[Rfam]
RNA sequence: UUGUCGUCACAGCCGAAAACUUCGUUCGGGCGGAGACGGAGGAACCACUUACGGAUCCCCCUGCAUGGGGUCCUGGGGUGAAGCCGCUACGGCGGCCGGGCAAUCCUCUCGCCCGAAUCCGACAGCUCACUCCGCAGGCGACGAGAGGGAACGG
Numbered sequence: 001u002u003g004u005c006g007u008c009a010c011a012g013c014c015g016a017a018a019a020c021u022u023c024g025u026u027c028g029g030g031c032g033g034a035g036a037c038g039g040a041g042g043a044a045c046c047a048c049u050u051a052c053g054g055a056u057c058c059c060c061c062u063g064c065a066u067g068g069g070g071u072c073c074u075g076g077g078g079u080g081a082a083g084c085c086g087c088u089a090c091g092g093c094g095g096c097c098g099g100g101c102a103a104u105c106c107u108c109u110c111g112c113c114c115g116a117a118u119c120c121g122a123c124a125g126c127u128c129a130c131u132c133c134g135c136a137g138g139c140g141a142c143g144a145g146a147g148g149g150a151a152c153g154g
Base pairs, nucleotide, nucleotide: 012139013138014137020033037134038133039132040131041130046075047074076120077119078118084095085094086093087092098114099113100112101111
RNA: c-di-AMP riboswitch aptamer (ydaO/yuaA leader)